The record is a 281-nucleotide part of an RNA from Pseudovirgaria hyperparasitica, which matches "Eukaryotic large subunit ribosomal RNA" in Rfam.
Clan: LSU clan.
Pairs were carried over by alignment from the consensus structure, which is taken from published work.
RNA sequence: GAGUCUAAUAUCUAUACGAGUGUUUAGGUGUUAAGCCCUUACGCGUAAUAAAAGUAAACGGAGGUAGGAGCCCUCGGGCGUACCAUUAACCGAUCCUAAUGUCUUCGGAAGGAUUUAAGUAAGAGCAUAGCUAUUAGGACCCGAAAGAUAGUAAACUAUACCUAAAUAGAGUGAAGCUAGAGGAAACUCUAGUAGAGGCUCGUAGCGGUUCUAACGUGCAAAUCGAUUAUUAAAUUUAGGUAUAGGGGCGAAAGACUAAUCGAACUAUCUAGUAGCUGGUU
Numbered sequence: 001g002a003g004u005c006u007a008a009u010a011u012c013u014a015u016a017c018g019a020g021u022g023u024u025u026a027g028g029u030g031u032u033a034a035g036c037c038c039u040u041a042c043g044c045g046u047a048a049u050a051a052a053a054g055u056a057a058a059c060g061g062a063g064g065u066a067g068g069a070g071c072c073c074u075c076g077g078g079c080g081u082a083c084c085a086u087u088a089a090c091c092g093a094u095c096c097u098a099a100u101g102u103c104u105u106c107g108g109a110a111g112g113a114u115u116u117a118a119g120u121a122a123g124a125g126c127a128u129a130g131c132u133a134u135u136a137g138g139a140c141c142c143g144a145a146a147g148a149u150a151g152u153a154a155a156c157u158a159u160a161c162c163u164a165a166a167u168a169g170a171g172u173g174a175a176g177c178u179a180g181a182g183g184a185a186a187c188u189c190u191a192g193u194a195g196a197g198g199c200u201c202g203u204a205g206c207g208g209u210u211c212u213a214a215c216g217u218g219c220a221a222a223u224c225g226a227u228u229a230u231u232a233a234a235u236u237u238a239g240g241u242a243u244a245g246g247g248g249c250g251a252a253a254g255a256c257u258a259a260u261c262g263a264a265c266u267a268u269c270u271a272g273u274a275g276c277u278g279g280u281u
Stems, first nucleotide, its partner, number of pairs: 005137006012130004017125001020044003027037003048055002063087003067083001070079003089120002092116002094113003100107002140279002143276001147269006156245011167233001169201004176193007205230001207228002210226002214223001247257002